Shown here is a 125-nucleotide RNA sequence from Carlito syrichta, a member of the family "U4atac minor spliceosomal RNA".
RNA sequence: ACCAUCCUUUUCUUGGGGUUGCACUACUGUCCAAUGAGCAUCUAGUGAAGGCAGAUUGCUAAUGCCUACACAACACACUUGCAUCAGCUAGAGCUCUACUUCAUCUUGGUGCAAUUUUUGGAAAA
Numbered sequence: 001a002c003c004a005u006c007c008u009u010u011u012c013u014u015g016g017g018g019u020u021g022c023a024c025u026a027c028u029g030u031c032c033a034a035u036g037a038g039c040a041u042c043u044a045g046u047g048a049a050g051g052c053a054g055a056u057u058g059c060u061a062a063u064g065c066c067u068a069c070a071c072a073a074c075a076c077a078c079u080u081g082c083a084u085c086a087g088c089u090a091g092a093g094c095u096c097u098a099c100u101u102c103a104u105c106u107u108g109g110u111g112c113a114a115u116u117u118u119u120g121g122a123a124a125a
Stems, first nucleotide, its partner, number of pairs: 006018004021059003027054005038046002081112006089103001091101003
Pairs were carried over by alignment from the consensus structure, which is taken from published work. The family's RNA type in Rfam is spliceosomal small nuclear RNA. On this family, see Marz et al., J Mol Evol 2008: "Evolution of spliceosomal snRNA genes in metazoan animals". The match comes from Rfam's covariance-model search (90 bits). U4atac is an essential component of the minor U12-type spliceosome complex which is required for removal of the rarer class of eukaryotic introns (AT-AC, U12-type).